[Rfam]
RNA sequence: AAAGCGGGCCAGACGGUCGCGCGACCGAAACGUCCAUUUCGGCGUGAGGAAAGUCCGGGCUCCACAGGGCAGGAUGCUGGCUAACGGCCAGGCGGGGCAACCCGACGGAUCAGUGCCGCAGAAAAGAAGACUCCCACCUACGGCGUGCCGUAAAGGGAAAAGCUGAAACGGUGGUGUAAGAGACCACCAGCGUCGUGGCAACACGGCGGCUUGGUAAACCCCAUCCGGAGCAAGCGCAAAUAGGGGCGCCAUGGGUCGGCCCGACCCGCGUCCGGGUAGCGUGCGAGGAGCCGCAUGGAGACAUGCGCGCCGAGAUAAAUGACCGUCCUCGACAGAACCCGGCUUAUCGGCCCGCUUUGCCC
Numbered sequence: 001a002a003a004g005c006g007g008g009c010c011a012g013a014c015g016g017u018c019g020c021g022c023g024a025c026c027g028a029a030a031c032g033u034c035c036a037u038u039u040c041g042g043c044g045u046g047a048g049g050a051a052a053g054u055c056c057g058g059g060c061u062c063c064a065c066a067g068g069g070c071a072g073g074a075u076g077c078u079g080g081c082u083a084a085c086g087g088c089c090a091g092g093c094g095g096g097g098c099a100a101c102c103c104g105a106c107g108g109a110u111c112a113g114u115g116c117c118g119c120a121g122a123a124a125a126g127a128a129g130a131c132u133c134c135c136a137c138c139u140a141c142g143g144c145g146u147g148c149c150g151u152a153a154a155g156g157g158a159a160a161a162g163c164u165g166a167a168a169c170g171g172u173g174g175u176g177u178a179a180g181a182g183a184c185c186a187c188c189a190g191c192g193u194c195g196u197g198g199c200a201a202c203a204c205g206g207c208g209g210c211u212u213g214g215u216a217a218a219c220c221c222c223a224u225c226c227g228g229a230g231c232a233a234g235c236g237c238a239a240a241u242a243g244g245g246g247c248g249c250c251a252u253g254g255g256u257c258g259g260c261c262c263g264a265c266c267c268g269c270g271u272c273c274g275g276g277u278a279g280c281g282u283g284c285g286a287g288g289a290g291c292c293g294c295a296u297g298g299a300g301a302c303a304u305g306c307g308c309g310c311c312g313a314g315a316u317a318a319a320u321g322a323c324c325g326u327c328c329u330c331g332a333c334a335g336a337a338c339c340c341g342g343c344u345u346a347u348c349g350g351c352c353c354g355c356u357u358u359g360c361c362c
Stems, first nucleotide, its partner, number of pairs: 001358010011347001012327007020046004025041001027039002051345003055342005060230004067262004072226005077091005092106001093104004107221002113219002115215003131162002134157002139152005170188006190210001191208007234282004244273006253267005290310002292307006
Bacterial RNase P class A: a 362-nucleotide sequence from Collinsella sp. An271. The source organism's lineage runs through Bacteria, Bacillati, Actinomycetota, Coriobacteriia and Collinsella.